The record is a 138-nucleotide sequence from Lactiplantibacillus mudanjiangensis, which matches "FMN riboswitch aptamer (RFN element)" in Rfam. Rfam describes the family as follows. The RFN element is a highly conserved domain that is found frequently in the 5'-untranslated regions of prokaryotic mRNAs that encode for flavin mononucleotide (FMN) biosynthesis and transport proteins.

RNA sequence: CGAUUUCUUCGGGGCAGGGUGUAAUUCCCGACCGACGGUGACAAUGCCAAUGGCGUUGAAGUCCGUGACCCACGUGCGCGUGGCUGAUCCAGUGAGAGUCUGGAACCGACUGUAAAGUCAGGAUGGGAGAAGAAAAUA
Numbered sequence: 001c002g003a004u005u006u007c008u009u010c011g012g013g014g015c016a017g018g019g020u021g022u023a024a025u026u027c028c029c030g031a032c033c034g035a036c037g038g039u040g041a042c043a044a045u046g047c048c049a050a051u052g053g054c055g056u057u058g059a060a061g062u063c064c065g066u067g068a069c070c071c072a073c074g075u076g077c078g079c080g081u082g083g084c085u086g087a088u089c090c091a092g093u094g095a096g097a098g099u100c101u102g103g104a105a106c107c108g109a110c111u112g113u114a115a116a117g118u119c120a121g122g123a124u125g126g127g128a129g130a131a132g133a134a135a136a137u138a
Stems, first nucleotide, its partner, number of pairs: 004135007017029003031118002033108002035066004061106002070083002088104005110121003